RNA sequence: GUGCCUCAAUCUAAUGAGUAAGGAAAUUAUUGGGCCUUGGUAACUCUCGGCUAUGUCCUAUAUAGGGCGACUGUAUUUUUGUAGGGCACAGGUCGUCCCCUUGAACUGAUCGCCUACUUUGCGAUCGGUUCGGGUGAAGCGAUCUACCCU
Numbered sequence: 001g002u003g004c005c006u007c008a009a010u011c012u013a014a015u016g017a018g019u020a021a022g023g024a025a026a027u028u029a030u031u032g033g034g035c036c037u038u039g040g041u042a043a044c045u046c047u048c049g050g051c052u053a054u055g056u057c058c059u060a061u062a063u064a065g066g067g068c069g070a071c072u073g074u075a076u077u078u079u080u081g082u083a084g085g086g087c088a089c090a091g092g093u094c095g096u097c098c099c100c101u102u103g104a105a106c107u108g109a110u111c112g113c114c115u116a117c118u119u120u121g122c123g124a125u126c127g128g129u130u131c132g133g134g135u136g137a138a139g140c141g142a143u144c145u146a147c148c149c150u
Stems, first nucleotide, its partner, number of pairs: 004023003008019001033052004039046001054070001057067002083150004090145007099134002103131005109125005
Dot-bracket structure: ...(((.(..........).))).........((((..(......)..)))).(..((.......))..)............((((...(((((((..((..(((((.(((((.......))))).))))).))....))))))).))))